[Rfam]
RNA sequence: GUGCAAAUGAUGUAAACUUCAGUUCCACUGAGUGACAGUGAUGUUUCCAAAGGAACCACUGAUGCAC
Dot-bracket structure: (((((.........................................................)))))
The record is a 67-nucleotide sequence from Pachyramphus minor, which matches "Small nucleolar RNA SNORD42" in Rfam. Rfam describes the family as follows. snoRNA U42 is found in intron 3 of the ribosomal protein L23a (RPL23a) gene in humans and is also present in mice. The family has 7 seed sequences and 848 matches in Rfam 15.1. It is annotated as a C/D-box small nucleolar RNA. Its family is annotated with nucleolus and RNA processing in the Gene Ontology.